[Rfam]
RNA: Small nucleolar RNA SNORD83
RNA sequence: GCCAAAUGAUGUGAAUGGGAUGGCAUUAGCACUGUGCAAAGAUGACAUUCAUCCAUCACCCCAUGCUGAUGGCU
Numbered sequence: 001g002c003c004a005a006a007u008g009a010u011g012u013g014a015a016u017g018g019g020a021u022g023g024c025a026u027u028a029g030c031a032c033u034g035u036g037c038a039a040a041g042a043u044g045a046c047a048u049u050c051a052u053c054c055a056u057c058a059c060c061c062c063a064u065g066c067u068g069a070u071g072g073c074u
Base pairs, nucleotide, nucleotide: 001073002072003071004070029037030036031035
Dot-bracket structure: ((((........................(((...)))................................)))).